Record summary
The record is a 74-nucleotide RNA from Clostridium putrefaciens, which matches "Fluoride riboswitch aptamer (crcB RNA motif)" in Rfam.
[Rfam]
Nucleotides: 074
Stems, first nucleotide, its partner, number of pairs: 010026004016065005045055003
Number, partner (000 for none) and nucleotide at each position: 001000a002000u003000c004000a005000c006000u007000a008000u009000u010026g011025g012024g013023a014000a015000u016065g017064a018063a019062g020061u021000a022000c023013u024012c025011c026010c027000u028000u029000a030000g031000c032000a033000a034000a035000u036000g037000c038000u039000a040000a041000a042000a043000c044000c045055g046054c047053u048000u049000a050000u051000u052000u053047a054046g055045c056000u057000g058000a059000u060000g061020a062019c063018u064017u065016c066000u067000g068000c069000a070000a071000u072000a073000a074000u